[Rfam]
RNA sequence: AAGGAGGGUGAUACGAAUGCAUUCUAUUCACUGUGCCAUCUGCUUAAUAUAGAUGAUCAGAGGGGAAAAGAAGAGCUAGAUCCAUUGGGACAGACGCACGGACGUGCGUCUGUCCCAGUUCAUGAGCGUCCUCAUACUGUUCUGUGCAAUUUAUCUUUUUGCAUUGGCACAGAUCGGUAACUGCGUGAGUGAUACAUCA
Numbered sequence: 001a002a003g004g005a006g007g008g009u010g011a012u013a014c015g016a017a018u019g020c021a022u023u024c025u026a027u028u029c030a031c032u033g034u035g036c037c038a039u040c041u042g043c044u045u046a047a048u049a050u051a052g053a054u055g056a057u058c059a060g061a062g063g064g065g066a067a068a069a070g071a072a073g074a075g076c077u078a079g080a081u082c083c084a085u086u087g088g089g090a091c092a093g094a095c096g097c098a099c100g101g102a103c104g105u106g107c108g109u110c111u112g113u114c115c116c117a118g119u120u121c122a123u124g125a126g127c128g129u130c131c132u133c134a135u136a137c138u139g140u141u142c143u144g145u146g147c148a149a150u151u152u153a154u155c156u157u158u159u160u161g162c163a164u165u166g167g168c169a170c171a172g173a174u175c176g177g178u179a180a181c182u183g184c185g186u187g188a189g190u191g192a193u194a195c196a197u198c199a
Base pairs, nucleotide, nucleotide: 019076020075022072023071031062032061034059035058037055038054039053040052041051120192121191122190123189126186127185128184137177138176139175141173142172143171144170145169146168147167152161153160
RNA: Small nucleolar RNA snR8